[Rfam]
RNA sequence: AACACGUCCCUUAGAUCCACCUCUGGGGAACUCAUGGUUUAGAGCUGUUCUUUCUAUCUCUGGAAAGUGCAGCUGAAGUCUUGAGAUUCUCAGCAGCUUUUCUGGCUGUACAGUUGGAGGUGCUUGAGUCAUUGACGUGUGAGAGCAGUCUACCUGCCACAUCCAGCUUCACUGCAGCACUGGCCUCCUCUCAAUGGAUGACACCCAGUGCAGCAAAGGUGAAGGGCGGACAGC
Numbered sequence: 001a002a003c004a005c006g007u008c009c010c011u012u013a014g015a016u017c018c019a020c021c022u023c024u025g026g027g028g029a030a031c032u033c034a035u036g037g038u039u040u041a042g043a044g045c046u047g048u049u050c051u052u053u054c055u056a057u058c059u060c061u062g063g064a065a066a067g068u069g070c071a072g073c074u075g076a077a078g079u080c081u082u083g084a085g086a087u088u089c090u091c092a093g094c095a096g097c098u099u100u101u102c103u104g105g106c107u108g109u110a111c112a113g114u115u116g117g118a119g120g121u122g123c124u125u126g127a128g129u130c131a132u133u134g135a136c137g138u139g140u141g142a143g144a145g146c147a148g149u150c151u152a153c154c155u156g157c158c159a160c161a162u163c164c165a166g167c168u169u170c171a172c173u174g175c176a177g178c179a180c181u182g183g184c185c186u187c188c189u190c191u192c193a194a195u196g197g198a199u200g201a202c203a204c205c206c207a208g209u210g211c212a213g214c215a216a217a218g219g220u221g222a223a224g225g226g227c228g229g230a231c232a233g234c
Stems, first nucleotide, its partner, number of pairs: 002140007010128005018122008026090004031085004037079004045072004051066001053065001055063001093109006154229005163218001172213005181207003186198003

A member of the RNA family "Small nucleolar RNA SNORA53" from Chanos chanos, 234 nucleotides long. By type it is an H/ACA-box small nucleolar RNA. A search with the family's covariance model found it, with a score of 90 bits. Rfam's curators write: The snoRNA ACA53 belongs to the H/ACA family of pseudouridylation guide snoRNAs. Pairs were carried over by alignment from the consensus structure, which was predicted with RNAalifold.